RNA: Small nucleolar RNA snoR99
Organism: Hibiscus trionum
RNA sequence: GUGCUCUAGGUAUGAAUUGGUCCCUCAUAUCUAAUAUCCAUCCGAUCACUUUGUCAGUCGCCUUUUCCGGUGGCAUUCUGAUCAUUAUAAGAUGGAAAAUGU
Numbered sequence: 001g002u003g004c005u006c007u008a009g010g011u012a013u014g015a016a017u018u019g020g021u022c023c024c025u026c027a028u029a030u031c032u033a034a035u036a037u038c039c040a041u042c043c044g045a046u047c048a049c050u051u052u053g054u055c056a057g058u059c060g061c062c063u064u065u066u067c068c069g070g071u072g073g074c075a076u077u078c079u080g081a082u083c084a085u086u087a088u089a090a091g092a093u094g095g096a097a098a099a100u101g102u
Stems, first nucleotide, its partner, number of pairs: 037096006053082005